Rfam assigns this 84-nucleotide RNA sequence from Pongo abelii to the family "mir-548 microRNA precursor family".
Rfam links the family to the GO terms RISC complex and miRNA-mediated post-transcriptional gene silencing.
RNA sequence: UAUUAUGUUGGCGCAGAAGUAAUUGCAGUUUUUGCCAUUGAAAGUAAUGGCAAAAAUCGCAAUUACUUCUGCACCAACCUAAUA
Number, nucleotide and partner (000 for none) at each position: 001u084002a083003u082004u081005a080006u000007g078008u077009u076010g075011g074012c000013g072014c071015a070016g069017a068018a067019g066020u065021a064022a063023u062024u061025g060026c059027a000028g057029u056030u055031u054032u053033u052034g051035c050036c049037a048038u047039u046040g045041a000042a000043a000044g000045u040046a039047a038048u037049g036050g035051c034052a033053a032054a031055a030056a029057u028058c000059g026060c025061a024062a023063u022064u021065a020066c019067u018068u017069c016070u015071g014072c013073a000074c011075c010076a009077a008078c007079c000080u005081a004082a003083u002084a001

The family has 11 seed sequences and 3,009 matches in Rfam 15.1. The base pairs follow the family's consensus structure, which was predicted with WAR.